[Rfam]
RNA sequence: UCACGAUAAUGGCAAACCUGUCGUAAGGCAGCGACGCAAAACUAUAGAGCCUGAGGGCGAAAGCUCACGGUAGCCAGUUACCGAA
Numbered sequence: 001u002c003a004c005g006a007u008a009a010u011g012g013c014a015a016a017c018c019u020g021u022c023g024u025a026a027g028g029c030a031g032c033g034a035c036g037c038a039a040a041a042c043u044a045u046a047g048a049g050c051c052u053g054a055g056g057g058c059g060a061a062a063g064c065u066c067a068c069g070g071u072a073g074c075c076a077g078u079u080a081c082c083g084a085a
Stems, first nucleotide, its partner, number of pairs: 012037002018031005040079004047075001049071003056065003

Background: The record is an 85-nucleotide RNA from Peribacillus loiseleuriae, which matches "c-di-GMP-I riboswitch aptamer" in Rfam. It scores 66 bits against the family's covariance model. The family's consensus secondary structure is taken from published work. NCBI's taxonomy places the organism under Bacteria, Bacillati, Bacilli, Bacillaceae, Peribacillus.